[Rfam]
RNA sequence: CAAAAUCACCAGGGGUGCUUUGUUGAUUCAAGGCUGAGAAAAACCCUAAUAACCUGCUCAGGAUAAUGCCUGCGGAGGGAGUGUGAGUUGUGCUUGUA
Dot-bracket structure: .....((((.((((.((((((........)))))......)..)))).....(((...((((......))))...)))....))))............
Numbered sequence: 001c002a003a004a005a006u007c008a009c010c011a012g013g014g015g016u017g018c019u020u021u022g023u024u025g026a027u028u029c030a031a032g033g034c035u036g037a038g039a040a041a042a043a044c045c046c047u048a049a050u051a052a053c054c055u056g057c058u059c060a061g062g063a064u065a066a067u068g069c070c071u072g073c074g075g076a077g078g079g080a081g082u083g084u085g086a087g088u089u090g091u092g093c094u095u096g097u098a
Stems, first nucleotide, its partner, number of pairs: 006086004011047004016041001017034005053078003059072004

Annotation: The family of this 98-nucleotide sequence from Legionella waltersii is "TPP riboswitch aptamer (THI element)". The family's consensus secondary structure is taken from published work. A search with the family's covariance model found it, with a score of 67 bits. Taxonomically the source falls in Legionella (Bacteria, Pseudomonadota, Legionellales, Legionellaceae).